[Rfam]
Nucleotides: 067
Stems, first nucleotide, its partner, number of pairs: 002064003006038005013028004042054003
Number, partner (000 for none) and nucleotide at each position: 001000u002064u003063a004062u005000u006038a007037u008036g009035a010034u011000c012000g013028u014027u015026g016025c017000a018000u019000a020000a021000u022000u023000c024000a025016g026015c027014a028013g029000a030000u031000g032000a033000a034010a035009u036008c037007a038006u039000g040000a041000a042054g043053a044052g045000u046000u047000u048000a049000c050000c051000u052044u053043u054042c055000g056000u057000c058000u059000a060000a061000u062004g063003u064002a065000u066000c067000c

Shown here is a 67-nucleotide RNA sequence from Carlito syrichta, a member of the family "Small nucleolar RNA SNORD77". Rfam links the family to the GO terms RNA processing and nucleolus. Taxonomically the source falls in Carlito (Eukaryota, Teleostomi, Euteleostomi, Haplorrhini). U77 belongs to the C/D family of snoRNAs. It is predicted to guide 2'O-ribose methylation of large 28S rRNA subunit at position A1521. The C/D snoRNAs U44, U47, U74, U75, U76, U78, U79, U80 and U81 share the same host gene as U77 (non-coding). By type it is a C/D-box small nucleolar RNA.